This 72-nucleotide RNA from Aspergillus nidulans belongs to the Rfam family "tRNA".
[Rfam]
RNA sequence: AUGACUAUAAGUUAAUAGGUAGACUGUUCGUCUUCCAAACGAAGUGUGUCGAUUCGAAUUCGACUAGUCAUA
Numbered sequence: 001a002u003g004a005c006u007a008u009a010a011g012u013u014a015a016u017a018g019g020u021a022g023a024c025u026g027u028u029c030g031u032c033u034u035c036c037a038a039a040c041g042a043a044g045u046g047u048g049u050c051g052a053u054u055c056g057a058a059u060u061c062g063a064c065u066a067g068u069c070a071u072a
Stems, first nucleotide, its partner, number of pairs: 001071007010025004027043005048064005
The family's consensus secondary structure is taken from published work.